[Rfam]
RNA sequence: UGGCUGUGAAGACAACAUUUCUCGAUGCUGAGUUUUGGAUAUGUAUGCUGAAUUUUAUGCGUGUCUGAGCUGC
Number, nucleotide and partner (000 for none) at each position: 001u072002g071003g070004c069005u000006g000007u000008g000009a000010a000011g000012a000013c000014a000015a000016c000017a000018u000019u000020u000021c000022u000023c000024g000025a000026u000027g000028c000029u000030g000031a000032g000033u000034u000035u000036u000037g000038g000039a000040u000041a000042u000043g000044u000045a000046u000047g000048c000049u000050g000051a000052a000053u000054u000055u000056u000057a000058u000059g000060c000061g000062u000063g000064u000065c000066u000067g000068a000069g004070c003071u002072g001073c000
Shown here is a 73-nucleotide RNA from Salvia splendens, a member of the family "small nucleolar RNA snoR126".
Rfam links the family to the GO terms RNA processing and nucleolus.
The match comes from Rfam's covariance-model search (49 bits).
The literature on the family includes a 2009 paper in Nucleic Acids Res by Chen and Wu, "Mining small RNA sequencing data: a new approach to identify small nucleolar RNAs in Arabidopsis".
The source organism's lineage runs through Eukaryota, Euphyllophyta, Pentapetalae, lamiids and core Calosphace.
Pairs were carried over by alignment from the consensus structure, which was predicted with RNAalifold.